[Rfam]
RNA sequence: CCUUGACAGUCGUAUAAUGCGGCUGACAUUUGCCAAGACAAGGAGACACACAUG
Numbered sequence: 001c002c003u004u005g006a007c008a009g010u011c012g013u014a015u016a017a018u019g020c021g022g023c024u025g026a027c028a029u030u031u032g033c034c035a036a037g038a039c040a041a042g043g044a045g046a047c048a049c050a051c052a053u054g
Stems, first nucleotide, its partner, number of pairs: 002042004007025005
Dot-bracket structure: .((((.(((((.........))))).............))))............
A member of the RNA family "Mu-gpT-DE RNA", 54 nucleotides long. Rfam classes the family as a small RNA.